[Rfam]
The record is a 75-nucleotide RNA from Tamilnaduibacter salinus, which matches "c-di-GMP-I riboswitch aptamer" in Rfam. Taxonomically the source falls in Tamilnaduibacter (Bacteria, Pseudomonadota, Pseudomonadales, Marinobacteraceae).

Nucleotides: 075
Stems, first nucleotide, its partner, number of pairs: 012037002017032006040069004045065003049059004
Number, partner (000 for none) and nucleotide at each position: 001000c002000a003000a004000a005000g006000a007000a008000c009000a010000g011000g012037c013036c014000a015000a016000a017032c018031c019030g020029g021028c022027c023000g024000c025000g026000a027022g028021g029020u030019c031018g032017g033000g034000a035000c036013g037012g038000a039000a040069a041068g042067c043066c044000a045065c046064g047063g048000a049059u050058c051057u052056c053000u054000u055000u056052g057051a058050g059049a060000a061000c062000g063047c064046c065045g066043g067042g068041u069040u070000g071000c072000g073000c074000g075000a